Annotation:
Rfam assigns this 102-nucleotide RNA from Paraferrimonas sedimenticola to the family "Alpha operon ribosome binding site". The bacterial alpha operon ribosome binding site is surrounded by this complex pseudoknotted structure. Translation of the mRNA produces 4 ribosomal protein products, one of which (S4) acts as a translational repressor by binding to the nested pseudoknot region. It scores 98 bits against the family's covariance model. The literature on the family includes a 2001 paper in J Biol Chem by Schlax et al., "Translational repression of the Escherichia coli alpha operon mRNA: importance of an mRNA conformational switch and a ternary entrapment complex". Lineage of the source: Bacteria > Pseudomonadati > Gammaproteobacteria > Alteromonadales > Paraferrimonas.
RNA sequence: AUCGUUCAACUGUUGAGUAUCCUACCGGGCUUUUCGCAGUUGGACCUUUAACUAUUUUAGGAGUGCAUAGUGGCCCGUAUUGCUGGCAUUAACAUUCCUGAU
Numbered sequence: 001a002u003c004g005u006u007c008a009a010c011u012g013u014u015g016a017g018u019a020u021c022c023u024a025c026c027g028g029g030c031u032u033u034u035c036g037c038a039g040u041u042g043g044a045c046c047u048u049u050a051a052c053u054a055u056u057u058u059a060g061g062a063g064u065g066c067a068u069a070g071u072g073g074c075c076c077g078u079a080u081u082g083c084u085g086g087c088a089u090u091a092a093c094a095u096u097c098c099u100g101a102u
Base pairs, nucleotide, nucleotide: 004045005044006043007042008041009040010039011038012037013036021086022085026077027076028075029074034101035100